The record is a 103-nucleotide RNA sequence from Microthlaspi erraticum, which matches "Plant small nucleolar RNA R71" in Rfam. The family's RNA type in Rfam is C/D-box small nucleolar RNA. The organism belongs to Microthlaspi, within Eukaryota. Its family is annotated with nucleolus and RNA processing in the Gene Ontology. The family has 25 seed sequences and 278,378 matches in Rfam 15.1.
[Rfam]
RNA sequence: AAUCCAUGGUGUGGGCACUGACUUGUGUAGCCUUUGAACCUCUCCCAAGCUCUGCGAAUGUCUCAUUGUUCCUGAUGAAGCUCGAUAUCUCACUCCUUAAGCU
Numbered sequence: 001a002a003u004c005c006a007u008g009g010u011g012u013g014g015g016c017a018c019u020g021a022c023u024u025g026u027g028u029a030g031c032c033u034u035u036g037a038a039c040c041u042c043u044c045c046c047a048a049g050c051u052c053u054g055c056g057a058a059u060g061u062c063u064c065a066u067u068g069u070u071c072c073u074g075a076u077g078a079a080g081c082u083c084g085a086u087a088u089c090u091c092a093c094u095c096c097u098u099a100a101g102c103u
Stems, first nucleotide, its partner, number of pairs: 001103001003101001006097001056071002059068001